[Rfam]
Nucleotides: 119
Stems, first nucleotide, its partner, number of pairs: 001015005016041004021036001024033003046118001048092006054081001057078003061074004097115001100112003
Number, partner (000 for none) and nucleotide at each position: 001015g002014g003013g004012a005011g006000u007000g008000g009000g010000c011005c012004u013003c014002c015001c016041g017040a018039a019038g020000c021036c022000g023000a024033c025032c026031u027000g028000c029000a030000g031026g032025g033024g034000c035000c036021g037000a038019c039018u040017u041016c042000a043000a044000a045000c046118c047000a048092c049091u050090c051089c052088a053087u054081g055000c056000u057078g058077c059076u060000u061074c062073g063072u064071u065000u066000c067000a068000a069000g070000a071064g072063a073062c074061g075000u076059g077058g078057u079000g080000a081054u082000g083000a084000g085000c086000g087053a088052u089051g090050g091049a092048g093000a094000a095000a096000u097115g098000g099000c100112g101111g102110u103000g104000c105000g106000c107000g108000a109000c110102g111101c112100c113000u114000a115097u116000a117000g118046g119000u